[Rfam]
RNA sequence: GGCCUACGCUAGGGGUCCUGGAAAUAACAUUUCCGGGUGAGAGAGUCCCUUAUACCUGAUCUGGAUAAUGCCAGCGAAGGGAAGCGCAAAGUCCCGGCC
Numbered sequence: 001g002g003c004c005u006a007c008g009c010u011a012g013g014g015g016u017c018c019u020g021g022a023a024a025u026a027a028c029a030u031u032u033c034c035g036g037g038u039g040a041g042a043g044a045g046u047c048c049c050u051u052a053u054a055c056c057u058g059a060u061c062u063g064g065a066u067a068a069u070g071c072c073a074g075c076g077a078a079g080g081g082a083a084g085c086g087c088a089a090a091g092u093c094c095c096g097g098c099c
Base pairs, nucleotide, nucleotide: 007086008085009084010083011050012049013048014047016044017037018036019035020034021033022032023031024030055080056079057078061074062073063072064071

Shown here is a 99-nucleotide sequence from Undibacterium sp. KW1, a member of the family "TPP riboswitch aptamer (THI element)". The organism belongs to Undibacterium, within Bacteria. Its family is annotated with thiamine pyrophosphate binding in the Gene Ontology. Rfam's curators write: Vitamin B(1) in its active form thiamin pyrophosphate (TPP) is an essential coenzyme that is synthesised by coupling of pyrimidine and thiazole moieties in bacteria.